Annotation:
A member of the RNA family "UnaL2 LINE 3' element" from Anguilla anguilla, 54 nucleotides long. Lineage of the source: Eukaryota > Opisthokonta > Craniata > Elopocephalai > Anguilla. A search with the family's covariance model found it, with a score of 66 bits. About the family: The eel long interspersed element (LINE) UnaL2 and its partner short interspersed element (SINE) share a conserved 3' tail containing a stem-loop that is critical for their retrotransposition. Rfam links the family to the GO term transposition, RNA-mediated. By type it is a cis-regulatory element.
[Rfam]
RNA sequence: GUAAAAAGUUAGUGUAAGUCGCUCUGGAUAAGAGCGUCUGCUAAAUGCCUGUAA
Number, nucleotide and partner (000 for none) at each position: 001g000002u000003a000004a000005a000006a000007a000008g000009u000010u000011a000012g000013u043014g041015u040016a039017a000018g000019u000020c036021g035022c034023u033024c032025u031026g000027g000028a000029u000030a000031a025032g024033a023034g022035c021036g020037u000038c000039u016040g015041c014042u000043a013044a000045a000046u000047g000048c000049c000050u000051g000052u000053a000054a000